[Rfam]
Notes
This 78-nucleotide RNA from Daphnia pulex belongs to the Rfam family "mir-34 microRNA precursor family".
RNA sequence: UGAUGGUUGGCAGUGUGGUUAGCUGGUUGUGAAAUAUUUACUUGAAUCCACAGCCACUAUCCAAACUGUCCACUGUCG
Numbered sequence: 001u002g003a004u005g006g007u008u009g010g011c012a013g014u015g016u017g018g019u020u021a022g023c024u025g026g027u028u029g030u031g032a033a034a035u036a037u038u039u040a041c042u043u044g045a046a047u048c049c050a051c052a053g054c055c056a057c058u059a060u061c062c063a064a065a066c067u068g069u070c071c072a073c074u075g076u077c078g
Stems, first nucleotide, its partner, number of pairs: 002077005009070002012067003016063003020059003024056008

Taxonomically the source falls in Daphnia (Eukaryota, Metazoa, Eumetazoa, Branchiopoda). Pairs were carried over by alignment from the consensus structure, which was predicted with RNAalifold. A reference for the family is Houbaviy et al. (2003), "Embryonic stem cell-specific MicroRNAs", Dev Cell.